[Rfam]
RNA sequence: AUACAGAGGUCAGUGUUCAGAGGUCAGAGGUCGGAAAGGGAAAGUAAGAGUGAUAAGACACUAUAGUGAUUUAAGGAUAUAUCAAAUAUCGUAUAGAUUAGCACUACUGAUUCACCAUAUGACUCAGCAAUUUCCGGACUUCGAGAGAUAUGAACUAUCUUCACAAUUAAGAAGAGCUGCUAUAUCUAUACCACUUAAUAUAGCAGAGGGUUAUGGUAAGAAACAUUCCCAAGCAGAUUUCAAAAGAUUCCUGAAUAUUGCCUUGGGAUCUAAUAAUGAGGUAAAGGUGUUAUUAGAUUUCAGCAAGGACUUGGGAUAUCUCAAGGAAUCAGUUUAUGAAGAGAUGACCAAUCAGUAUGAUGAGUUGGGUAGACAGAUCUAUUCACUUCUGAGUAAGUGGAAAUAGUCUCUGACUUCUGACCUCUGACUACUGACCUCUGUCUGGUA
Numbered sequence: 001a002u003a004c005a006g007a008g009g010u011c012a013g014u015g016u017u018c019a020g021a022g023g024u025c026a027g028a029g030g031u032c033g034g035a036a037a038g039g040g041a042a043a044g045u046a047a048g049a050g051u052g053a054u055a056a057g058a059c060a061c062u063a064u065a066g067u068g069a070u071u072u073a074a075g076g077a078u079a080u081a082u083c084a085a086a087u088a089u090c091g092u093a094u095a096g097a098u099u100a101g102c103a104c105u106a107c108u109g110a111u112u113c114a115c116c117a118u119a120u121g122a123c124u125c126a127g128c129a130a131u132u133u134c135c136g137g138a139c140u141u142c143g144a145g146a147g148a149u150a151u152g153a154a155c156u157a158u159c160u161u162c163a164c165a166a167u168u169a170a171g172a173a174g175a176g177c178u179g180c181u182a183u184a185u186c187u188a189u190a191c192c193a194c195u196u197a198a199u200a201u202a203g204c205a206g207a208g209g210g211u212u213a214u215g216g217u218a219a220g221a222a223a224c225a226u227u228c229c230c231a232a233g234c235a236g237a238u239u240u241c242a243a244a245a246g247a248u249u250c251c252u253g254a255a256u257a258u259u260g261c262c263u264u265g266g267g268a269u270c271u272a273a274u275a276a277u278g279a280g281g282u283a284a285a286g287g288u289g290u291u292a293u294u295a296g297a298u299u300u301c302a303g304c305a306a307g308g309a310c311u312u313g314g315g316a317u318a319u320c321u322c323a324a325g326g327a328a329u330c331a332g333u334u335u336a337u338g339a340a341g342a343g344a345u346g347a348c349c350a351a352u353c354a355g356u357a358u359g360a361u362g363a364g365u366u367g368g369g370u371a372g373a374c375a376g377a378u379c380u381a382u383u384c385a386c387u388u389c390u391g392a393g394u395a396a397g398u399g400g401a402a403a404u405a406g407u408c409u410c411u412g413a414c415u416u417c418u419g420a421c422c423u424c425u426g427a428c429u430a431c432u433g434a435c436c437u438c439u440g441u442c443u444g445g446u447a
Stems, first nucleotide, its partner, number of pairs: 001443001003441013

Description:
The family of this 447-nucleotide part of an RNA from an uncultured Atribacterota bacterium is "Bacterial large subunit ribosomal RNA".